[Rfam]
The record is a 133-nucleotide RNA sequence from Cnephaeus nilssonii, which matches "Small nucleolar RNA SNORA22" in Rfam. ACA22 is a member of the H/ACA class of snoRNA that guide the sites of modification of uridines to pseudouridines. The base pairs follow the family's consensus structure, which was predicted with RNAfold.
RNA sequence: UUGCACAGUGAACACCAAGUGUGCUUUAUGGUUCCCUUGGCUUUGACUCUGUGCUACAGCAAUGGCUGUUCUUUUCCUCUGUAGUGACGGGGUUAUUGAUCCUUUUAAAUGUAUUCAGGAAGUCAGCACACUA
Numbered sequence: 001u002u003g004c005a006c007a008g009u010g011a012a013c014a015c016c017a018a019g020u021g022u023g024c025u026u027u028a029u030g031g032u033u034c035c036c037u038u039g040g041c042u043u044u045g046a047c048u049c050u051g052u053g054c055u056a057c058a059g060c061a062a063u064g065g066c067u068g069u070u071c072u073u074u075u076c077c078u079c080u081g082u083a084g085u086g087a088c089g090g091g092g093u094u095a096u097u098g099a100u101c102c103u104u105u106u107a108a109a110u111g112u113a114u115u116c117a118g119g120a121a122g123u124c125a126g127c128a129c130a131c132u133a
Stems, first nucleotide, its partner, number of pairs: 003054006010048001013045002015040005021034001023032003056072001058070004078119004082111002085108001086106002089103004
Rfam classes the family as an H/ACA-box small nucleolar RNA.